[Rfam]
RNA: Selenocysteine transfer RNA
RNA sequence: GGAGGCGAAUGUGGCCUGGUGGCCGCCCCGGGCUUCAAACCCGCGCGAGGGGCGAUUUGAGUCGUCCUUGGUGUGUUCGAUUCGCACACGCCUCC
Number, nucleotide and partner (000 for none) at each position: 001g095002g094003a093004g092005g091006c090007g089008a000009a000010u000011g026012u025013g024014g023015c022016c021017u000018g000019g000020u000021g016022g015023c014024c013025g012026c011027c045028c000029c043030g042031g041032g040033c000034u000035u000036c000037a000038a000039a000040c032041c031042c030043g029044c000045g027046c000047g069048a068049g067050g066051g065052g000053c000054g000055a000056u000057u000058u000059g000060a000061g000062u000063c000064g000065u051066c050067c049068u048069u047070g000071g000072u086073g085074u084075g083076u000077u000078c000079g000080a000081u000082u000083c075084g074085c073086a072087c000088a000089c007090g006091c005092c004093u003094c002095c001